[Rfam]
RNA sequence: GGGGCACGCUUAGAGCCCCACGCACAGCAGUGUUAAUAGCGGCGCCUUUGGCCGGACGUCGUGGUUAGUGAAUC
Number, nucleotide and partner (000 for none) at each position: 001g019002g018003g017004g016005c015006a000007c000008g000009c000010u000011u000012a000013g000014a000015g005016c004017c003018c002019c001020a000021c000022g000023c000024a000025c000026a000027g000028c000029a000030g000031u000032g000033u068034u067035a066036a065037u064038a000039g062040c061041g060042g059043c058044g057045c000046c055047u054048u000049u000050g000051g000052c000053c000054g047055g046056a000057c044058g043059u042060c041061g040062u039063g000064g037065u036066u035067a034068g033069u000070g000071a000072a000073u000074c000
L13-Bacteroidia ribosomal protein leader: a 74-nucleotide sequence. On this family, see Eckert and Weinberg, BMC Microbiol 2020: "Discovery of 20 novel ribosomal leader candidates in bacteria and archaea".